[Rfam]
RNA sequence: UCACCCGAAGGUCUCCUUCGGCAUAAUAAUAACGAUGAAAUUCCUCUUUGACGGGCCAAUAGAAAUAUUGGCCAUUUUUUU
Numbered sequence: 001u002c003a004c005c006c007g008a009a010g011g012u013c014u015c016c017u018u019c020g021g022c023a024u025a026a027u028a029a030u031a032a033c034g035a036u037g038a039a040a041u042u043c044c045u046c047u048u049u050g051a052c053g054g055g056c057c058a059a060u061a062g063a064a065a066u067a068u069u070g071g072c073c074a075u076u077u078u079u080u081u
Stems, first nucleotide, its partner, number of pairs: 007019005027032001054073008